[Rfam]
The family of this 63-nucleotide RNA from Pteropus vampyrus is "Small nucleolar RNA SNORD66". Rfam classes the family as a C/D-box small nucleolar RNA. snoRNA HBII-142 is part of the C/D family of snoRNAs. It is the human orthologue of the mouse MBII-142 snoRNA and is predicted to guide 2'O-ribose methylation of small 18S rRNA at residue C1272. Rfam links the family to the GO terms RNA processing and nucleolus. Pairs were carried over by alignment from the consensus structure, which was predicted with RNAalifold. The source organism's lineage runs through Eukaryota, Chordata, Eutheria, Yinpterochiroptera and Pteropus. It scores 33 bits against the family's covariance model.

RNA sequence: ACCUUGUGAUGAUUAAUUUUUUGUGUCAACUUGACUGGGCCACAGGAUACCCAGAUGUUAGGU
Numbered sequence: 001a002c003c004u005u006g007u008g009a010u011g012a013u014u015a016a017u018u019u020u021u022u023g024u025g026u027c028a029a030c031u032u033g034a035c036u037g038g039g040c041c042a043c044a045g046g047a048u049a050c051c052c053a054g055a056u057g058u059u060a061g062g063u
Base pairs, nucleotide, nucleotide: 001063002062003061004060